Rfam assigns this 304-nucleotide RNA from Catagonus wagneri to the family "7SK RNA". Rfam's curators write: 7SK was discovered as an abundant small nuclear RNA in the mid-70s but a possible function has only recently been suggested. Two independent studies have found that 7SK RNA binds the CDK9/cyclin T complex (known as elongation factor P-TEFb). P-TEFb activates transcription by phosphorylating the C-terminal domain of RNA polymerase II. This process is negatively regulated by the 7SK RNP. The secondary structure of 7SK RNA shown here was proposed by Wasserman and Steitz on the basis of chemical modification and enzymatic cleavage experiments. This family contains a number of annotated pseudogenes and 7SK derived repeats. The threshold is artificially high to minimise the pseudogene count. For this family Rfam cites "Transcription: surprising role for an elusive small nuclear RNA" (Blencowe, Curr Biol, 2002). The base pairs follow the family's consensus structure, which is taken from published work. The family's RNA type in Rfam is non-coding RNA gene. Lineage of the source: Eukaryota > Deuterostomia > Dipnotetrapodomorpha > Tayassuidae > Catagonus.
RNA sequence: GGAUGUGAGGGCGAUCUGGCUGCGACAUCUGUCAGCCCACUGAUCGCCAGGGUUGAUUCGGCUGAUCUGGCUGGCUGGGCGGGGGUCCCCUUCCUCCCUCACCGCUCCAUGUGCGUCCCUCCCGAAGCUGCGCGCUCGGUCGAAGAGGACGACCAUCCCCGAUAGAGGAGGACCGUUCUUCGGUCAAGGGUAUACGGGUAGCUGCGCUCCCCUGCUAGAACCUCCAAACAAGCUCUCUUCUAUCUAUGGUCAGAAUAUGCUGGAGUCAUGGUGACAUAAAAGAAAAGUAAUUUGACUUUCAGUU
Number, nucleotide and partner (000 for none) at each position: 001g108002g107003a106004u000005g102006u101007g100008a099009g098010g097011g096012c000013g093014a092015u000016c000017u000018g090019g089020c000021u000022g000023c000024g087025a086026c085027a000028u083029c082030u081031g080032u079033c078034a000035g000036c073037c070038c069039a068040c000041u000042g067043a066044u065045c064046g062047c061048c060049a000050g000051g000052g000053u000054u000055g000056a000057u000058u000059c000060g048061g047062c046063u000064g045065a044066u043067c042068u039069g038070g037071c000072u000073g036074g000075c000076u000077g000078g033079g032080c031081g030082g029083g028084g000085g026086u025087c024088c000089c019090c018091u000092u014093c013094c000095u000096c011097c010098c009099u008100c007101a006102c005103c000104g000105c000106u003107c002108c001109a000110u000111g000112u000113g000114c000115g000116u171117c170118c168119c167120u166121c165122c139123c138124g137125a136126a000127g135128c134129u000130g000131c000132g000133c000134g128135c127136u125137c124138g123139g122140u162141c161142g160143a000144a000145g000146a000147g158148g157149a156150c000151g000152a000153c000154c000155a000156u149157c148158c147159c000160c142161g141162a140163u000164a000165g121166a120167g119168g118169a000170g117171g116172a000173c000174c000175g000176u000177u000178c000179u000180u000181c000182g000183g000184u000185c000186a000187a000188g000189g000190g000191u000192a000193u000194a000195c000196g000197g000198g000199u000200a000201g000202c270203u000204g000205c000206g000207c265208u264209c000210c000211c263212c262213u000214g260215c259216u000217a000218g000219a000220a000221c000222c000223u254224c253225c000226a000227a000228a250229c249230a000231a247232g000233c000234u000235c000236u000237c000238u000239u000240c000241u000242a000243u000244c000245u000246a000247u231248g000249g229250u228251c000252a000253g224254a223255a000256u000257a000258u000259g215260c214261u000262g212263g211264a208265g207266u000267c000268a000269u000270g202271g000272u000273g000274a000275c000276a000277u000278a000279a000280a000281a000282g000283a000284a000285a000286a000287g000288u000289a000290a000291u000292u000293u000294g000295a000296c000297u000298u000299u000300c000301a000302g000303u000304u000